Flavo-1 RNA: a 77-nucleotide RNA from Pelobium manganitolerans. Taxonomically the source falls in Pelobium (Bacteria, Pseudomonadati, Bacteroidota, Sphingobacteriaceae). The family's consensus secondary structure is taken from published work. It is annotated as a small RNA.
RNA sequence: AUUUUGCGUUAGGGAUUGCAGCGAAAAUCCUUUUUGCUAAGAAAGCAAAAAGAUUGUAGCGUAAAGCCCGACCCCGC
Numbered sequence: 001a002u003u004u005u006g007c008g009u010u011a012g013g014g015a016u017u018g019c020a021g022c023g024a025a026a027a028u029c030c031u032u033u034u035u036g037c038u039a040a041g042a043a044a045g046c047a048a049a050a051a052g053a054u055u056g057u058a059g060c061g062u063a064a065a066g067c068c069c070g071a072c073c074c075c076g077c
Stems, first nucleotide, its partner, number of pairs: 012069003016065002021060002026055004032050006